This 83-nucleotide sequence from Austrofundulus limnaeus belongs to the Rfam family "Small nucleolar RNA SNORD100".

[Rfam]
RNA sequence: UGCAUCGCUGAUGAUAACUUGGCUCCCUCUACUGAACUCUGUGAGGAUAAUGCCAUUGUUACCCAAUUUUUGUCUGAGAUACA
Numbered sequence: 001u002g003c004a005u006c007g008c009u010g011a012u013g014a015u016a017a018c019u020u021g022g023c024u025c026c027c028u029c030u031a032c033u034g035a036a037c038u039c040u041g042u043g044a045g046g047a048u049a050a051u052g053c054c055a056u057u058g059u060u061a062c063c064c065a066a067u068u069u070u071u072g073u074c075u076g077a078g079a080u081a082c083a
Base pairs, nucleotide, nucleotide: 001083002082004080005079006078
Taxonomically the source falls in Austrofundulus (Eukaryota, Euteleostomi, Actinopterygii, Actinopteri). The match comes from Rfam's covariance-model search (76 bits). The literature on the family includes a 2001 paper in EMBO J by Huttenhofer et al., "RNomics: an experimental approach that identifies 201 candidates for novel, small, non-messenger RNAs in mouse". The base pairs follow the family's consensus structure, which was predicted with RNAalifold.